[Rfam]
RNA sequence: GUUGGUCCUCGGUAGUGGCUUCCGGACAGGCGUCCGUGGGCCUCGAUCGAUGACCGCC
Numbered sequence: 001g002u003u004g005g006u007c008c009u010c011g012g013u014a015g016u017g018g019c020u021u022c023c024g025g026a027c028a029g030g031c032g033u034c035c036g037u038g039g040g041c042c043u044c045g046a047u048c049g050a051u052g053a054c055c056g057c058c
Base pairs, nucleotide, nucleotide: 001058003056004055005054006053007052009050010049011048012047013046017042018041019040020039021038023036024035025034026033027032
RNA: Actino-pnp RNA
Organism: Occultella aeris